[Rfam]
PyrR binding site: a 110-nucleotide RNA from Bacillus safensis. About the family: This family represents the PyrR binding site and terminator structure. This RNA structure is found upstream of a variety of genes involved in pyrimidine biosynthesis and transport. The alignment also includes a portion of the antiterminator structure. It is annotated as a cis-regulatory element. The source organism's lineage runs through Bacteria, Bacillota, Bacilli, Bacillaceae and Bacillus.
RNA sequence: AGAUUCUUUAAAACAGUCCAGAGAGGCUGAGAAGGAUAACGGAUCAAUUUGUGCACGCAUAUGCACAAAUGAACGCCCCUCUCUGCCCUUUGCAGAAGGGGCUUUUUAUU
Numbered sequence: 001a002g003a004u005u006c007u008u009u010a011a012a013a014c015a016g017u018c019c020a021g022a023g024a025g026g027c028u029g030a031g032a033a034g035g036a037u038a039a040c041g042g043a044u045c046a047a048u049u050u051g052u053g054c055a056c057g058c059a060u061a062u063g064c065a066c067a068a069a070u071g072a073a074c075g076c077c078c079c080u081c082u083c084u085g086c087c088c089u090u091u092g093c094a095g096a097a098g099g100g101g102c103u104u105u106u107u108a109u110u
Stems, first nucleotide, its partner, number of pairs: 003037007014029005048069008072105002075102006083095004

The base pairs follow the family's consensus structure, which is taken from published work.